[Rfam]
RNA sequence: UGUAUAAUGAUGAAACCCAUGCGUGUCAGCUGACUCUGUAAACCACUGCCGUGUUGUUGCUCUGGUUGGCGUUUUGCUGGCCUGAGUCUACAGCACAGCAGGGAUCCAGAGACAUGAUCAUACAUUACUUUCUGAAUACA
Numbered sequence: 001u002g003u004a005u006a007a008u009g010a011u012g013a014a015a016c017c018c019a020u021g022c023g024u025g026u027c028a029g030c031u032g033a034c035u036c037u038g039u040a041a042a043c044c045a046c047u048g049c050c051g052u053g054u055u056g057u058u059g060c061u062c063u064g065g066u067u068g069g070c071g072u073u074u075u076g077c078u079g080g081c082c083u084g085a086g087u088c089u090a091c092a093g094c095a096c097a098g099c100a101g102g103g104a105u106c107c108a109g110a111g112a113c114a115u116g117a118u119c120a121u122a123c124a125u126u127a128c129u130u131u132c133u134g135a136a137u138a139c140a
Stems, first nucleotide, its partner, number of pairs: 001140004044103001046101004051096002
Source information
The family of this 140-nucleotide sequence from Cottoperca gobio is "Small nucleolar RNA SNORD10". Pairs were carried over by alignment from the consensus structure, which was predicted with WAR. Its family is annotated with RNA processing and nucleolus in the Gene Ontology. The family has 22 seed sequences and 433 matches in Rfam 15.1. The match comes from Rfam's covariance-model search (98 bits).